RNA sequence: CGGGCGUCACAACGGCUUCCUGGCGUGACGCCGGCAAUCAAUGGAGCA
Numbered sequence: 001c002g003g004g005c006g007u008c009a010c011a012a013c014g015g016c017u018u019c020c021u022g023g024c025g026u027g028a029c030g031c032c033g034g035c036a037a038u039c040a041a042u043g044g045a046g047c048a
Stems, first nucleotide, its partner, number of pairs: 004031007013022002015047003019044002